Source information:
A member of the RNA family "SAM/SAH riboswitch aptamer" from Lentibacter algarum, 50 nucleotides long. The organism belongs to Lentibacter, within Bacteria. The match comes from Rfam's covariance-model search (53 bits). A reference for the family is Weickhmann et al. (2019), "The structure of the SAM/SAH-binding riboswitch", Nucleic Acids Res. The base pairs follow the family's consensus structure, which is taken from published work.

RNA sequence: CGACCGCCCCAACGGCUUCCUGACGGGGUGGAUCAUAAACCACUGGAGCA
Numbered sequence: 001c002g003a004c005c006g007c008c009c010c011a012a013c014g015g016c017u018u019c020c021u022g023a024c025g026g027g028g029u030g031g032a033u034c035a036u037a038a039a040c041c042a043c044u045g046g047a048g049c050a
Stems, first nucleotide, its partner, number of pairs: 004031007013022002015049003019046002